The record is a 187-nucleotide sequence from Anaerobacillus alkaliphilus, which matches "Lysine riboswitch aptamer" in Rfam. NCBI's taxonomy places the organism under Bacteria, Bacillati, Bacillota, Bacilli, Anaerobacillus. The match comes from Rfam's covariance-model search (116 bits).
RNA sequence: AGGUGAGGUAGAGGCGCAAAACUUAUCAGUAGAUUGCUUGAGGAUGACAACUGUGAAGGCUUUUGAAAGGAAGUUUUGCCGAAGUGAUAAUGACUUUGUCAAAGGAAUUAUUGCUGGGGUGACAUUGAAGAAGUGUCGCACUGUCACAAUCUGUUUGCCCAAUAGAUUGUGGAGGACUACUAACCAA
Numbered sequence: 001a002g003g004u005g006a007g008g009u010a011g012a013g014g015c016g017c018a019a020a021a022c023u024u025a026u027c028a029g030u031a032g033a034u035u036g037c038u039u040g041a042g043g044a045u046g047a048c049a050a051c052u053g054u055g056a057a058g059g060c061u062u063u064u065g066a067a068a069g070g071a072a073g074u075u076u077u078g079c080c081g082a083a084g085u086g087a088u089a090a091u092g093a094c095u096u097u098g099u100c101a102a103a104g105g106a107a108u109u110a111u112u113g114c115u116g117g118g119g120u121g122a123c124a125u126u127g128a129a130g131a132a133g134u135g136u137c138g139c140a141c142u143g144u145c146a147c148a149a150u151c152u153g154u155u156u157g158c159c160c161a162a163u164a165g166a167u168u169g170u171g172g173a174g175g176a177c178u179a180c181u182a183a184c185c186a187a
Stems, first nucleotide, its partner, number of pairs: 007181005016079009032064002036060004083115009094104001116142002119139008144172010